[Rfam]
RNA sequence: AAUCGUCUUUGGGGCAAGGUGAGAAGGGGCUUCCUUCAUAUUCCUGACCGGCGGUACAGUCCGCAAGCUCUGAAAAGAGUUGAAUCGAUGCAAUUUCGAUACCGACAGUUACAGUCUGGAUGGGAAAAGACGGCU
Numbered sequence: 001a002a003u004c005g006u007c008u009u010u011g012g013g014g015c016a017a018g019g020u021g022a023g024a025a026g027g028g029g030c031u032u033c034c035u036u037c038a039u040a041u042u043c044c045u046g047a048c049c050g051g052c053g054g055u056a057c058a059g060u061c062c063g064c065a066a067g068c069u070c071u072g073a074a075a076a077g078a079g080u081u082g083a084a085u086c087g088a089u090g091c092a093a094u095u096u097c098g099a100u101a102c103c104g105a106c107a108g109u110u111a112c113a114g115u116c117u118g119g120a121u122g123g124g125a126a127a128a129g130a131c132g133g134c135u
Base pairs, nucleotide, nucleotide: 003133004132005131006130007129008128009127010126017045018044019043047115048114049104050103051064052063053062054061059102060101067080068079069078084100085099086098087097088096106118107117108116
RNA: FMN riboswitch aptamer (RFN element)
Organism: Megasphaera vaginalis